Overview
A member of the RNA family "Small nucleolar RNA R16" from Olea europaea, 70 nucleotides long. It is annotated as a C/D-box small nucleolar RNA. The source organism's lineage runs through Eukaryota, eudicotyledons, asterids, Oleeae and Olea europaea. For this family Rfam cites "Experimental RNomics: identification of 140 candidates for small non-messenger RNAs in the plant Arabidopsis thaliana" (Marker et al., Curr Biol, 2002).

RNA sequence: AAAGGAAAGUGAUGCAAAUUAUCUGAAAUUUUGUGUUGACCAGCAACUCCGCUUAAUAUCUGAUGCCUUU
Numbered sequence: 001a002a003a004g005g006a007a008a009g010u011g012a013u014g015c016a017a018a019u020u021a022u023c024u025g026a027a028a029u030u031u032u033g034u035g036u037u038g039a040c041c042a043g044c045a046a047c048u049c050c051g052c053u054u055a056a057u058a059u060c061u062g063a064u065g066c067c068u069u070u
Stems, first nucleotide, its partner, number of pairs: 003068003007064001
Dot-bracket structure: ..(((.(........................................................).)))..
Overview: Its family is annotated with nucleolus and RNA processing in the Gene Ontology.